[Rfam]
The record is a 71-nucleotide RNA sequence, which matches "2dG-II purine riboswitch aptamer" in Rfam. The family is grouped with related families in Rfam's "Purine riboswitches". The family's consensus secondary structure is taken from published work. Rfam's curators put it in the seed alignment.

RNA sequence: GUCCCUUGUAAUCUCCCGGAUUGGCGGGGGAGAAUCCACCAGCUGGCCUUAACCAGCCGUAACCAGGGGAA
Numbered sequence: 001g002u003c004c005c006u007u008g009u010a011a012u013c014u015c016c017c018g019g020a021u022u023g024g025c026g027g028g029g030g031a032g033a034a035u036c037c038a039c040c041a042g043c044u045g046g047c048c049u050u051a052a053c054c055a056g057c058c059g060u061a062a063c064c065a066g067g068g069g070a071a
Stems, first nucleotide, its partner, number of pairs: 002070007012031007042057005